Rfam assigns this 247-nucleotide part of an RNA from Flavobacterium aquatile to the family "Bacterial large subunit ribosomal RNA".
[Rfam]
RNA sequence: UAGAAAUUUGAGUGGAUCUGAUUCUAGUACGAGAGGACCGAAUUGGACAAACCUCUGGUGUAUCUGUUGUUCCGCCAGGAGCACCGCAGAGUAGCUACGUUUGGAAGGGAUAAGCGCUGAAAGCAUAUAAGCGCGAAACCCACCACAAGAUGAGAUUUCUUUUAAGGGUCGUUGGAGAUGACAACGUUGAUAGGCUAUAGAUGUAAAGGCAGUAAUGUCAUAGUCGAGUAGUACUAAUAACCCGUAA
Numbered sequence: 001u002a003g004a005a006a007u008u009u010g011a012g013u014g015g016a017u018c019u020g021a022u023u024c025u026a027g028u029a030c031g032a033g034a035g036g037a038c039c040g041a042a043u044u045g046g047a048c049a050a051a052c053c054u055c056u057g058g059u060g061u062a063u064c065u066g067u068u069g070u071u072c073c074g075c076c077a078g079g080a081g082c083a084c085c086g087c088a089g090a091g092u093a094g095c096u097a098c099g100u101u102u103g104g105a106a107g108g109g110a111u112a113a114g115c116g117c118u119g120a121a122a123g124c125a126u127a128u129a130a131g132c133g134c135g136a137a138a139c140c141c142a143c144c145a146c147a148a149g150a151u152g153a154g155a156u157u158u159c160u161u162u163u164a165a166g167g168g169u170c171g172u173u174g175g176a177g178a179u180g181a182c183a184a185c186g187u188u189g190a191u192a193g194g195c196u197a198u199a200g201a202u203g204u205a206a207a208g209g210c211a212g213u214a215a216u217g218u219c220a221u222a223g224u225c226g227a228g229u230a231g232u233a234c235u236a237a238u239a240a241c242c243c244g245u246a247a
Stems, first nucleotide, its partner, number of pairs: 002160008012146004018046007048103005056097003063090005068083006107141003114134005166243004170186005191236003194232005200225002204220001208219004
Overview:
A search with the family's covariance model found it, with a score of 2800 bits.